Notes: This 95-nucleotide RNA sequence from Vibrio eleionomae belongs to the Rfam family "Qrr RNA". The family's consensus secondary structure is taken from published work. NCBI's taxonomy places the organism under Bacteria, Gammaproteobacteria, Vibrionales, Vibrionaceae, Vibrio. Rfam's curators write: This family represents a set of small RNAs (the Qrr RNAs) that are thought to be involved in the regulation of quorum sensing in Vibrio species. It is believed that these RNAs, guided by a protein, Hfq, can mediate the destabilisation of the quorum-sensing master regulators LuxR/HapR mRNAs. It scores 84 bits against the family's covariance model. Gene Ontology term of the family: quorum sensing.
RNA sequence: UGACCCUAACGGGUCACCUAGCCAACUGACGUUGUUAGUGAAUUAUAUGUUCACAGUAUUACAGCCAAUAGAGUGUUUCUAUUGGCUAUUUUUUU
Numbered sequence: 001u002g003a004c005c006c007u008a009a010c011g012g013g014u015c016a017c018c019u020a021g022c023c024a025a026c027u028g029a030c031g032u033u034g035u036u037a038g039u040g041a042a043u044u045a046u047a048u049g050u051u052c053a054c055a056g057u058a059u060u061a062c063a064g065c066c067a068a069u070a071g072a073g074u075g076u077u078u079c080u081a082u083u084g085g086c087u088a089u090u091u092u093u094u095u
Stems, first nucleotide, its partner, number of pairs: 001016006032064004038054006065085008